This 47-nucleotide RNA from Ziziphus jujuba belongs to the Rfam family "Plastid-rpl16 group II-D1 intron". About the family: Plastid-rpl16 is a non-coding RNA (ncRNA) recognised in plastids. It was recognised in and intronic region of a ribosome rpl16 gene. The match comes from Rfam's covariance-model search (53 bits).
[Rfam]
RNA sequence: AAGAGCCCUGAGCUAAUAAAUAUUGAGAGGAUUAACUUAAGAAUAAA
Numbered sequence: 001a002a003g004a005g006c007c008c009u010g011a012g013c014u015a016a017u018a019a020a021u022a023u024u025g026a027g028a029g030g031a032u033u034a035a036c037u038u039a040a041g042a043a044u045a046a047a
Base pairs, nucleotide, nucleotide: 007041010038011037012036014034015033016032017031